RNA: Mammalian CPEB3 ribozyme
Organism: Crocodylus porosus
RNA sequence: AGUUACAAAUUUGAAACUAUACCAGAAGCGCUUGUGGCAUGGCCCUGUCAGAUUCCAAUGAAUCUGUGAAUUCUGCU
Numbered sequence: 001a002g003u004u005a006c007a008a009a010u011u012u013g014a015a016a017c018u019a020u021a022c023c024a025g026a027a028g029c030g031c032u033u034g035u036g037g038c039a040u041g042g043c044c045c046u047g048u049c050a051g052a053u054u055c056c057a058a059u060g061a062a063u064c065u066g067u068g069a070a071u072u073c074u075g076c077u
Base pairs, nucleotide, nucleotide: 013045017042018041021077023075024074025073026072027071028040030038049066050065051064052063053062054061055060